[Rfam]
RNA sequence: AUACCCCAUGAUGCUCAGGUCCGCCGCAUCUCCUGGGUCGUGGGGUCGGUCGACCGGCAGGCAUGCCAAAGCGGUUCCUCGUGCCGUGAUUGCAGGCUGGUCGACCCCCGU
Number, nucleotide and partner (000 for none) at each position: 001a000002u000003a046004c045005c044006c043007c042008a041009u040010g039011a000012u000013g000014c037015u036016c035017a034018g033019g032020u000021c000022c000023g000024c000025c000026g000027c000028a000029u000030c000031u000032c019033c018034u017035g016036g015037g014038u000039c010040g009041u008042g007043g006044g005045g004046u003047c000048g106049g105050u104051c103052g102053a101054c100055c099056g098057g097058c096059a000060g000061g000062c000063a000064u000065g000066c000067c000068a000069a000070a000071g000072c000073g000074g000075u000076u000077c000078c000079u000080c000081g000082u000083g000084c000085c000086g000087u000088g000089a000090u000091u000092g000093c000094a000095g000096g058097c057098u056099g055100g054101u053102c052103g051104a050105c049106c048107c000108c000109c000110g000111u000
Rfam assigns this 111-nucleotide sequence from Rhizobium sp. YS-1r to the family "EcpR1". Pairs were carried over by alignment from the consensus structure, which was predicted with WAR. NCBI's taxonomy places the organism under Bacteria, Pseudomonadati, Pseudomonadota, Hyphomicrobiales, Rhizobium. The match comes from Rfam's covariance-model search (99 bits). From the family's description: Perviously named SmelC291, SmrC10, or Sra33. According to its overproduction phenotype it was renamed Elongated Cell Phenotype RNA1. Induced by stress,EcpR1 negatively regulates cell cycle master regulatory genes dnaA and gcrA at post-transcriptional level by base pairing between its strongly conserved GC-rich loop and the target mRNAs. It is annotated as a small RNA.